[Rfam]
RNA sequence: AACAAAGCUGUCUAGGGUUCCGUUUAAAUAUUUUUUAAAGUCUGGUCCAAGAGAGAGCGUACAGUUAACCUGUAUACACGGAAGGAUAAAAGCCUGGGAGAU
Numbered sequence: 001a002a003c004a005a006a007g008c009u010g011u012c013u014a015g016g017g018u019u020c021c022g023u024u025u026a027a028a029u030a031u032u033u034u035u036u037a038a039a040g041u042c043u044g045g046u047c048c049a050a051g052a053g054a055g056a057g058c059g060u061a062c063a064g065u066u067a068a069c070c071u072g073u074a075u076a077c078a079c080g081g082a083a084g085g086a087u088a089a090a091a092g093c094c095u096g097g098g099a100g101a102u
Stems, first nucleotide, its partner, number of pairs: 007058003011054002015048002020045002022042001023039006059075006077097001079100001083095003
Record summary:
Rfam assigns this 102-nucleotide sequence from Neobacillus cucumis to the family "Guanidine-I riboswitch aptamer". The organism belongs to Neobacillus, within Bacteria. This family represents a conserved RNA structure found upstream of the ykkC and yxkD genes in Bacillus subtilis and related genes in other bacteria.